[Rfam]
Description
The record is a 152-nucleotide RNA sequence from Glaciihabitans arcticus, which matches "FMN riboswitch aptamer (RFN element)" in Rfam. The match comes from Rfam's covariance-model search (82 bits). The family's consensus secondary structure is taken from published work. Rfam's curators write: The RFN element is a highly conserved domain that is found frequently in the 5'-untranslated regions of prokaryotic mRNAs that encode for flavin mononucleotide (FMN) biosynthesis and transport proteins. This element is a metabolite-dependent riboswitch that directly binds FMN in the absence of proteins. In Bacillus subtilis, the riboswitch most likely controls gene expression by causing premature transcription termination within the 5' untranslated region of the ribDEAHT operon and precluding access to the ribosome-binding site of ypaA mRNA.The FMN riboswitch structure, reported in present an FMN-bound six-stem junction, adopts a butterfly-like scaffold, stapled together by opposingly directed but nearly identically folded peripheral domains.

RNA sequence: AACGUGCUCCGGGGUCGGUGAAAGUCCGAACCGGCGGUUAUAGUCCGCGACCCGCGUCGAGUGAGAACUCGAAACGGUUGAGCUGGUGGAAUUCCAGCACCGACGGUAAUGAGACCGCAAGGUCUCUCAGUCCGGAUGAGAGGAAGCACGCG
Numbered sequence: 001a002a003c004g005u006g007c008u009c010c011g012g013g014g015u016c017g018g019u020g021a022a023a024g025u026c027c028g029a030a031c032c033g034g035c036g037g038u039u040a041u042a043g044u045c046c047g048c049g050a051c052c053c054g055c056g057u058c059g060a061g062u063g064a065g066a067a068c069u070c071g072a073a074a075c076g077g078u079u080g081a082g083c084u085g086g087u088g089g090a091a092u093u094c095c096a097g098c099a100c101c102g103a104c105g106g107u108a109a110u111g112a113g114a115c116c117g118c119a120a121g122g123u124c125u126c127u128c129a130g131u132c133c134g135g136a137u138g139a140g141a142g143g144a145a146g147c148a149c150g151c152g
Base pairs, nucleotide, nucleotide: 003150004149005148006147007146008145009143010142016028017027018026032102033101034048035047036046037045043100044099052077053076082098083097084096085095086094104134105133106132